[Rfam]
RNA sequence: UUGCUUGUGAGAUGAUUUUAGGAGUUCUAAACGAGUAGAUUACUUACUCAAAUCCAAAUUUACUCCUGGGAAGGUCUGAGGCAUGCUUCAUUAUGUAUCCUUUAGGAAGGGAACGUUCGAGAGAACGUGAAACUGUACUGGAAGCAACUUGUUUCUGCCAAAUUCUUGCAAAGGAACAAGAAGCUUUCUAAUUGAAAGUGGAUUCCGUUAGAUAUUUGUGCAUUCGAAAUACGGUUUCGGGCAGCGGUUUUAGUGCGAUAAUCAAAUAACCCAAUUCAGACUAGUACACGAGCAA
Dot-bracket structure: ((((..(((...[...[[.(((((........((((((.....)))))).............)))))........(((((....((((.........(((((.....)))))((((((....))))))(((((((................(.(.................................................................).).........))))))))))).................]]...].........))))).......)))..))))
Numbered sequence: 001u002u003g004c005u006u007g008u009g010a011g012a013u014g015a016u017u018u019u020a021g022g023a024g025u026u027c028u029a030a031a032c033g034a035g036u037a038g039a040u041u042a043c044u045u046a047c048u049c050a051a052a053u054c055c056a057a058a059u060u061u062a063c064u065c066c067u068g069g070g071a072a073g074g075u076c077u078g079a080g081g082c083a084u085g086c087u088u089c090a091u092u093a094u095g096u097a098u099c100c101u102u103u104a105g106g107a108a109g110g111g112a113a114c115g116u117u118c119g120a121g122a123g124a125a126c127g128u129g130a131a132a133c134u135g136u137a138c139u140g141g142a143a144g145c146a147a148c149u150u151g152u153u154u155c156u157g158c159c160a161a162a163u164u165c166u167u168g169c170a171a172a173g174g175a176a177c178a179a180g181a182a183g184c185u186u187u188c189u190a191a192u193u194g195a196a197a198g199u200g201g202a203u204u205c206c207g208u209u210a211g212a213u214a215u216u217u218g219u220g221c222a223u224u225c226g227a228a229a230u231a232c233g234g235u236u237u238c239g240g241g242c243a244g245c246g247g248u249u250u251u252a253g254u255g256c257g258a259u260a261a262u263c264a265a266a267u268a269a270c271c272c273a274a275u276u277c278a279g280a281c282u283a284g285u286a287c288a289c290g291a292g293c294a295a
Stems, first nucleotide, its partner, number of pairs: 001295004007289003013265001017261002020067005033049006076279005085242004098112005113128006129238007152222001154220001
The record is a 295-nucleotide RNA sequence from Panagrolaimus sp. ES5, which matches "Nuclear RNase P" in Rfam. From the family's description: Ribonuclease P (RNase P) is a ubiquitous endoribonuclease, found in archaea, bacteria and eukarya as well as chloroplasts and mitochondria. Its best characterised activity is the generation of mature 5'-ends of tRNAs by cleaving the 5'-leader elements of precursor-tRNAs. Cellular RNase Ps are ribonucleoproteins. The base pairs follow the family's consensus structure, which is taken from published work. By type it is a ribozyme.